[Rfam]
Nucleotides: 118
Base pairs, nucleotide, nucleotide: 002048003047004046005045006044007043009037010036011035012034014032016029055112057110058109059108060107061106068097069096070095071094072093073092074091076089077088078087080086
Number, partner (000 for none) and nucleotide at each position: 001000g002048u003047g004046c005045c006044c007043u008000g009037g010036u011035u012034g013000a014032c015000g016029c017000c018000a019000u020000a021000u022000g023000c024000u025000u026000u027000u028000a029016g030000a031000g032014g033000c034012u035011a036010a037009c038000a039000c040000g041000g042000a043007a044006g045005g046004g047003u048002a049000a050000a051000a052000u053000a054000a055112g056000u057110c058109u059108c060107c061106a062000u063000a064000a065000a066000a067000u068097c069096c070095a071094g072093a073092g074091a075000a076089g077088a078087g079000a080086u081000g082000a083000u084000a085000a086080a087078c088077u089076c090000c091074u092073c093072u094071u095070u096069g097068g098000a099000u100000c101000c102000u103000g104000u105000c106061u107060g108059g109058a110057g111000u112055c113000a114000c115000a116000a117000c118000u
This 118-nucleotide sequence from Tupaia belangeri belongs to the Rfam family "Small nucleolar RNA SNORA26". A search with the family's covariance model found it, with a score of 111 bits. The family's RNA type in Rfam is H/ACA-box small nucleolar RNA. Clan: SNORA27 clan. Rfam's curators write: The snoRNA HBI-6 belong to the H/ACA family of snoRNAs, guiding the pseudouridylation of position U4522 if the 28S rRNA. HBI-6 is the human orthologue of mouse MBI-6 snoRNA. Pairs were carried over by alignment from the consensus structure, which was predicted with RNAalifold. A reference for the family is Huttenhofer et al. (2001), "RNomics: an experimental approach that identifies 201 candidates for novel, small, non-messenger RNAs in mouse", EMBO J. Rfam links the family to the GO terms nucleolus and RNA processing.